[Rfam]
Nucleotides: 581
Base pairs, nucleotide, nucleotide: 001472002471003469004468005467007466008465009464010463011462012461013460015456016455019420020419021418022417023416024313026311027310028309029308030307031306032305033304034302035301040055041054042053043052064297065296066295067294068293069292070291077126078125079123080122081121082120083119088103089102090101091100092099093098106117107116108115109114129286130285132284133283134282135281138280139279140275141274142273143271145269146268150189151188152187153186154185155184156165157164158163168181169180170179171178195263196262197261198260200231201230202229203228204227205226206225210220211219234254235253237251238250239249240248241247317372318371319370320369321368322367330361331360332359335354336353340349341348342347379410384405385404386403387402388401389400390399426448427447428446429445430444431443432442475580477577480573481572485567486566487565488564490562491561492560495557496556497555498554499553500552503549504548505547506546511542513540514539515538516537518536519535520534521533524531525530
Number, partner (000 for none) and nucleotide at each position: 001472u002471g003469a004468c005467g006000g007466g008465g009464g010463c011462c012461c013460g014000c015456a016455c017000a018000a019420g020419c021418g022417g023416u024313g025000g026311a027310g028309u029308a030307u031306g032305u033304g034302g035301u036000u037000u038000a039000a040055u041054u042053c043052g044000a045000a046000g047000c048000a049000a050000c051000g052043c053042g054041a055040a056000g057000a058000a059000c060000c061000u062000u063000a064297c065296c066295a067294g068293g069292g070291c071000u072000u073000g074000a075000c076000a077126u078125c079123c080122c081121g082120a083119u084000g085000a086000c087000c088103g089102c090101u091100c092099u093098a094000g095000a096000g097000a098093u099092a100091g101090a102089g103088u104000u105000u106117u107116c108115u109114c110000u111000u112000c113000g114109g115108a116107g117106a118000c119083a120082u121081c122080g123079g124000u125078g126077a127000c128000a129286g130285g131000u132284g133283g134282u135281g136000c137000a138280u139279g140275g141274u142273u143271g144000u145269c146268g147000u148000c149000a150189g151188c152187u153186c154185g155184u156165g157164u158163c159000g160000u161000g162000a163158g164157a165156u166000g167000u168181u169180g170179g171178g172000u173000u174000a175000a176000g177000u178171c179170c180169c181168g182000c183000a184155a185154c186153g187152a188151g189150c190000g191000c192000a193000a194000c195263c196262c197261u198260u199000a200231u201230u202229g203228u204227u205226a206225g207000u208000u209000g210220c211219u212000a213000c214000g215000c216000a217000a218000g219211a220210g221000c222000a223000c224000u225206c226205u227204a228203g229202c230201g231200a232000g233000a234254c235253u236000g237251c238250c239249g240248u241247u242000g243000a244000c245000a246000a247241a248240a249239c250238g251237g252000a253235g254234g255000a256000a257000g258000g259000u260198g261197g262196g263195g264000a265000c266000g267000a268146c269145g270000u271143c272000a273142a274141a275140u276000c277000a278000u279139c280138a281135u282134g283133c284132c285130c286129c287000u288000u289000a290000u291070g292069u293068c294067c295066u296065g297064g298000g299000c300000c301035a302034c303000a304033c305032a306031c307030g308029u309028a310027c311026u312000a313024c314000a315000a316000u317372g318371g319370u320369g321368g322367u323000c324000a325000a326000c327000a328000g329000a330361g331360g332359g333000a334000a335354g336353c337000a338000a339000u340349a341348c342347c343000g344000c345000g346000a347342g348341g349340u350000g351000g352000a353336g354335c355000a356000a357000a358000u359332c360331c361330c362000u363000a364000a365000a366000a367322g368321c369320c370319a371318u372317c373000c374000c375000a376000g377000u378000u379410c380000g381000g382000a383000u384405c385404g386403c387402a388401g389400g390399c391000u392000g393000c394000a395000a396000c397000c398000c399390g400389c401388c402387u403386g404385c405384g406000u407000g408000a409000a410379g411000u412000u413000g414000g415000a416023a417022u418021c419020g420019c421000u422000a423000g424000u425000a426448a427447u428446c429445g430444c431443g432442g433000a434000u435000c436000a437000g438000c439000a440000u441000g442432c443431c444430g445429c446428g447427g448426u449000g450000a451000a452000u453000a454000c455016g456015u457000u458000c459000c460013c461012g462011g463010g464009c465008c466007u467005u468004g469003u470000a471002c472001a473000c474000a475580c476000c477577g478000c479000c480573c481572g482000u483000c484000a485567c486566a487565c488564c489000a490562u491561g492560a493000g494000a495557g496556u497555c498554g499553g500552g501000a502000a503549c504548a505547c506546c507000c508000g509000a510000a511542g512000u513540c514539c515538g516537u517000a518536g519535c520534u521533u522000g523000a524531c525530c526000g527000c528000a529000a530525g531524g532000a533521g534520g535519g536518c537516g538515c539514g540513g541000c542511c543000g544000a545000a546506g547505g548504u549503g550000g551000g552500u553499u554498c555497g556496a557495u558000a559000a560492u561491u562490g563000g564488g565487g566486u567485g568000a569000a570000g571000u572481c573480g574000u575000a576000a577477c578000a579000a580475g581000g
Rfam assigns this 581-nucleotide part of an RNA from bacterium 1xD42-67 to the family "Bacterial small subunit ribosomal RNA".